Shown here is a 106-nucleotide RNA sequence from Kluyvera cryocrescens, a member of the family "iscR stability element". Its family is annotated with response to host iron concentration in the Gene Ontology. On this family, see Desnoyers et al., EMBO J 2009: "Small RNA-induced differential degradation of the polycistronic mRNA iscRSUA". The family's RNA type in Rfam is cis-regulatory element. The base pairs follow the family's consensus structure, which is taken from published work.
[Rfam]
RNA sequence: AAAAGAGAUUUCAGAGUCAGGCCGGGAUUCACCUCCCGUCAACACGGUCGUACAUCCAGCCGGUUGCCUGAUUCCUUGCAUUGAGUGAUGUACGGAGUUAAAGAGC
Numbered sequence: 001a002a003a004a005g006a007g008a009u010u011u012c013a014g015a016g017u018c019a020g021g022c023c024g025g026g027a028u029u030c031a032c033c034u035c036c037c038g039u040c041a042a043c044a045c046g047g048u049c050g051u052a053c054a055u056c057c058a059g060c061c062g063g064u065u066g067c068c069u070g071a072u073u074c075c076u077u078g079c080a081u082u083g084a085g086u087g088a089u090g091u092a093c094g095g096a097g098u099u100a101a102a103g104a105g106c
Stems, first nucleotide, its partner, number of pairs: 008099001010097003014074009023038005042064002045062003077092001079090003